[Rfam]
RNA: Bacterial RNase P class A
RNA sequence: GCGGAGGGCCGGAUGACCGCGGCAGGCAACUGUCGAGGAAAGUCCGGACUCCAUGAGGCGACGGUGCCGGGUAACGCCCGGCGGGGGCAACCCCAGGGAAAGCGCCACAGAGAACAGACCGCCGCUGCGUGCAGCGGCAAGGGUGAAACGGUGGGGUAAGAGCCCACCGGGGGGCUGGUAACAGCCCCCGCAUGGCAAGCCCCACCGGGAGCAAUGCCGAAUAGGGACCGCGCGCGGGGGCAACCUCGCGGGGCCGCCUUGCCCCAGCAGGUCCGGGUAGGCAGCACGAUCCGGUCGGCAACGGCCGGACCAGAGGAAUGGUCAUCCAGCCGCGCAAGCGGUGGACAGAAUCCGGCUUACAGGCCCUCCGCGCGC
Numbered sequence: 001g002c003g004g005a006g007g008g009c010c011g012g013a014u015g016a017c018c019g020c021g022g023c024a025g026g027c028a029a030c031u032g033u034c035g036a037g038g039a040a041a042g043u044c045c046g047g048a049c050u051c052c053a054u055g056a057g058g059c060g061a062c063g064g065u066g067c068c069g070g071g072u073a074a075c076g077c078c079c080g081g082c083g084g085g086g087g088c089a090a091c092c093c094c095a096g097g098g099a100a101a102g103c104g105c106c107a108c109a110g111a112g113a114a115c116a117g118a119c120c121g122c123c124g125c126u127g128c129g130u131g132c133a134g135c136g137g138c139a140a141g142g143g144u145g146a147a148a149c150g151g152u153g154g155g156g157u158a159a160g161a162g163c164c165c166a167c168c169g170g171g172g173g174g175c176u177g178g179u180a181a182c183a184g185c186c187c188c189c190g191c192a193u194g195g196c197a198a199g200c201c202c203c204a205c206c207g208g209g210a211g212c213a214a215u216g217c218c219g220a221a222u223a224g225g226g227a228c229c230g231c232g233c234g235c236g237g238g239g240g241c242a243a244c245c246u247c248g249c250g251g252g253g254c255c256g257c258c259u260u261g262c263c264c265c266a267g268c269a270g271g272u273c274c275g276g277g278u279a280g281g282c283a284g285c286a287c288g289a290u291c292c293g294g295u296c297g298g299c300a301a302c303g304g305c306c307g308g309a310c311c312a313g314a315g316g317a318a319u320g321g322u323c324a325u326c327c328a329g330c331c332g333c334g335c336a337a338g339c340g341g342u343g344g345a346c347a348g349a350a351u352c353c354g355g356c357u358u359a360c361a362g363g364c365c366c367u368c369c370g371c372g373c374g375c
Stems, first nucleotide, its partner, number of pairs: 001371010011360001012326007020035006040358003044355005049211004057259002062207005067081005082096001083094004097202002102200002104196003119142002121138007150168006169191001170189008215283004225274005250265005290309008
Dot-bracket structure: ((((((((((((((((((.((((((....))))))....[[[.[[[[[((((....[[...((((((((((.....)))))(((((....)))).)((...(((((............(((((((((....)))))))..)).......((((((.......))))))(((((((((....)))))))).)..)))..)))))))))))))...((((......(((((....................(((((...]].)))))....))))).....))))......((((((((....))))))))..........)))))))........................]]]]]]]].).))))))))))....